The record is a 127-nucleotide sequence from Carnobacterium sp. ZWU0011, which matches "trpB ncRNA motif" in Rfam. On this family, see Narunsky et al., Nucleic Acids Res 2024: "The discovery of novel noncoding RNAs in 50 bacterial genomes". The family's RNA type in Rfam is cis-regulatory element. The sequence is in the family's curated seed alignment.
RNA sequence: CUCAUAGAAACGACCCUCAGUGUGUUUACUGAGAACGUUUCUAUGUUGGCUUUAUUAUCCUAUAAACAUGUUGCAGCCGCAUAGAAUAAAAGGGGGCAUCCCUUGUUCUGUGUGGCUUUUUUGUAUU
Numbered sequence: 001c002u003c004a005u006a007g008a009a010a011c012g013a014c015c016c017u018c019a020g021u022g023u024g025u026u027u028a029c030u031g032a033g034a035a036c037g038u039u040u041c042u043a044u045g046u047u048g049g050c051u052u053u054a055u056u057a058u059c060c061u062a063u064a065a066a067c068a069u070g071u072u073g074c075a076g077c078c079g080c081a082u083a084g085a086a087u088a089a090a091a092g093g094g095g096g097c098a099u100c101c102c103u104u105g106u107u108c109u110g111u112g113u114g115g116c117u118u119u120u121u122u123g124u125a126u127u
Stems, first nucleotide, its partner, number of pairs: 003045009016033005076116014